[Rfam]
RNA sequence: UAUUCUUUGUGAUGAGCAAUAAACUUUCGCCCCUAGCUGAACACAUAAGUGAAACUUCUCAUGUUGAAUGCGAGAUUGGUCUUACUGAUAAUAUGA
Numbered sequence: 001u002a003u004u005c006u007u008u009g010u011g012a013u014g015a016g017c018a019a020u021a022a023a024c025u026u027u028c029g030c031c032c033c034u035a036g037c038u039g040a041a042c043a044c045a046u047a048a049g050u051g052a053a054a055c056u057u058c059u060c061a062u063g064u065u066g067a068a069u070g071c072g073a074g075a076u077u078g079g080u081c082u083u084a085c086u087g088a089u090a091a092u093a094u095g096a
Stems, first nucleotide, its partner, number of pairs: 001093004
About this RNA:
The family of this 96-nucleotide sequence from Drosophila grimshawi is "Small nucleolar RNA Me28S-Gm1083". It scores 89 bits against the family's covariance model. Lineage of the source: Eukaryota > Ecdysozoa > Eremoneura > Drosophilini > Hawaiian Drosophila.